[Rfam]
RNA: Small nucleolar RNA SNORA12
RNA sequence: UGUUGUGGUGGUUUCUGUAUCUGGCAGAUCUGUAACUGUAACAGAGCGGCCUUGAACUACCACAAAGAUCAGAAAGGAGGAUGAGUGUUCUGAGAACUCUUUCAGGCUCUUAGUUUUCAGUUUUUUGUUCAGCUCCUACAGAA
Numbered sequence: 001u002g003u004u005g006u007g008g009u010g011g012u013u014u015c016u017g018u019a020u021c022u023g024g025c026a027g028a029u030c031u032g033u034a035a036c037u038g039u040a041a042c043a044g045a046g047c048g049g050c051c052u053u054g055a056a057c058u059a060c061c062a063c064a065a066a067g068a069u070c071a072g073a074a075a076g077g078a079g080g081a082u083g084a085g086u087g088u089u090c091u092g093a094g095a096a097c098u099c100u101u102u103c104a105g106g107c108u109c110u111u112a113g114u115u116u117u118c119a120g121u122u123u124u125u126u127g128u129u130c131a132g133c134u135c136c137u138a139c140a141g142a143a
Stems, first nucleotide, its partner, number of pairs: 005063007023051003027047001029045004076136004080089003103127004